[Rfam]
RNA sequence: UUUUUUUAUUGUGCAAAUCCAAUCAUCUAGAUUUGAAAUAAGAAGCAUUUCCCCAUUGGUAGCAAAUGGUUAUCCAUUAAGCGGAGGAAAUGGUAU
Numbered sequence: 001u002u003u004u005u006u007u008a009u010u011g012u013g014c015a016a017a018u019c020c021a022a023u024c025a026u027c028u029a030g031a032u033u034u035g036a037a038a039u040a041a042g043a044a045g046c047a048u049u050u051c052c053c054c055a056u057u058g059g060u061a062g063c064a065a066a067u068g069g070u071u072a073u074c075c076a077u078u079a080a081g082c083g084g085a086g087g088a089a090a091u092g093g094u095a096u
Base pairs, nucleotide, nucleotide: 009021011019051086053084054083055077056076058074059073060072061071062070063069